[Rfam]
RNA: mir-194 microRNA precursor family
RNA sequence: UGGAGCCCACCCCUUGUAACAGCAACUCCAUGUGGAAGGGUCUCCUGGUUCCAGUGGAGCUGCUGUUAUCUUGGGUGGGUCAUC
Numbered sequence: 001u002g003g004a005g006c007c008c009a010c011c012c013c014u015u016g017u018a019a020c021a022g023c024a025a026c027u028c029c030a031u032g033u034g035g036a037a038g039g040g041u042c043u044c045c046u047g048g049u050u051c052c053a054g055u056g057g058a059g060c061u062g063c064u065g066u067u068a069u070c071u072u073g074g075g076u077g078g079g080u081c082a083u084c
Stems, first nucleotide, its partner, number of pairs: 010075003016069008026059006033053003